The family of this 95-nucleotide RNA from Reyranella soli is "Bacterial small signal recognition particle RNA".
About the family: The signal recognition particle (SRP) is a universally conserved ribonucleoprotein involved in the co-translational targeting of proteins to membranes.
A search with the family's covariance model found it, with a score of 56 bits.
The family's consensus secondary structure is taken from published work.
[Rfam]
RNA sequence: GAGGGGCCGGUGUGGGCGGAGCAGUCGCCAACCCGGUCAGAUCCGGAAGGAAGCAGCCGUAACGAAUUCGCUUCGGGUCAUGCCGGUCUCUCACC
Numbered sequence: 001g002a003g004g005g006g007c008c009g010g011u012g013u014g015g016g017c018g019g020a021g022c023a024g025u026c027g028c029c030a031a032c033c034c035g036g037u038c039a040g041a042u043c044c045g046g047a048a049g050g051a052a053g054c055a056g057c058c059g060u061a062a063c064g065a066a067u068u069c070g071c072u073u074c075g076g077g078u079c080a081u082g083c084c085g086g087u088c089u090c091u092c093a094c095c
Base pairs, nucleotide, nucleotide: 004090005089006088009084010083011082012081013080014079017075018074019073020072021071022070023067025065026064027063034059035058036057037056042051043050044049